Alphaproteobacteria transfer-messenger RNA: a 354-nucleotide RNA from Epibacterium ulvae.
By type it is a non-coding RNA gene.
Taxonomically the source falls in Epibacterium (Bacteria, Alphaproteobacteria, Rhodobacterales, Roseobacteraceae).
The match comes from Rfam's covariance-model search (300 bits).
Bacterial tmRNA, also known as 10Sa RNA or SsrA, is named for its dual tRNA and mRNA-like properties. Its role is to liberate the mRNA from a stalled ribosome. To accomplish this part of the tmRNA is used as a reading frame that ends in a translation stop signal. The broken mRNA is replaced in the ribosome by the tmRNA and translation of the tmRNA leads to addition of a proteolysis tag to the incomplete protein enabling recognition by a protease. Recently a number of permuted tmRNA genes have been found encoded in two parts. tmRNAs have been identified in eubacteria and some chloroplasts but are absent from archaeal and eukaryote nuclear genomes.
RNA sequence: CCUCUUUAACUCCCGUGCUCAAACGCAUAUAUUUUCUAUGUUCCCUCGGGAACUAUGGACAUAAAUGCGCUCGUAAUAAACGGAUCGGACCCGGGGGCGGUACCCGGCGUCUCCACCAUAUAUCCUUCAUUUGAGGAUCUUGGGGACGAAAUAGGAUCGACGGACGUCUAAAGGGGUUAGCUUUGUCUCGGCUGUCUGCCACCGUUAUCGGCGAAACUUGUACAAUUGCAAAUGACAAUCGUGCUCCGGCAAUGGCAGUUGCAGCGUAAGCUGUAAAUGUCGCCGAAACUUAAGUCCUUACGCCUAGCCGCGUAAGGCGGGGUUCGCAGGUACCUGGCAACAGAAACCUGCACU
Numbered sequence: 001c002c003u004c005u006u007u008a009a010c011u012c013c014c015g016u017g018c019u020c021a022a023a024c025g026c027a028u029a030u031a032u033u034u035u036c037u038a039u040g041u042u043c044c045c046u047c048g049g050g051a052a053c054u055a056u057g058g059a060c061a062u063a064a065a066u067g068c069g070c071u072c073g074u075a076a077u078a079a080a081c082g083g084a085u086c087g088g089a090c091c092c093g094g095g096g097g098c099g100g101u102a103c104c105c106g107g108c109g110u111c112u113c114c115a116c117c118a119u120a121u122a123u124c125c126u127u128c129a130u131u132u133g134a135g136g137a138u139c140u141u142g143g144g145g146a147c148g149a150a151a152u153a154g155g156a157u158c159g160a161c162g163g164a165c166g167u168c169u170a171a172a173g174g175g176g177u178u179a180g181c182u183u184u185g186u187c188u189c190g191g192c193u194g195u196c197u198g199c200c201a202c203c204g205u206u207a208u209c210g211g212c213g214a215a216a217c218u219u220g221u222a223c224a225a226u227u228g229c230a231a232a233u234g235a236c237a238a239u240c241g242u243g244c245u246c247c248g249g250c251a252a253u254g255g256c257a258g259u260u261g262c263a264g265c266g267u268a269a270g271c272u273g274u275a276a277a278u279g280u281c282g283c284c285g286a287a288a289c290u291u292a293a294g295u296c297c298u299u300a301c302g303c304c305u306a307g308c309c310g311c312g313u314a315a316g317g318c319g320g321g322g323u324u325c326g327c328a329g330g331u332a333c334c335u336g337g338c339a340a341c342a343g344a345a346a347c348c349u350g351c352a353c354u
Base pairs, nucleotide, nucleotide: 040053041052042051043050044049057188058187059186060185061184067181068180069177070176071175072174081166082165085163086162087161091107092106093105094104095103108148109147110146111145112144113143114142189204190203191202195214196213198212199211200210320335321334322333323332326351327350328349329348330347331346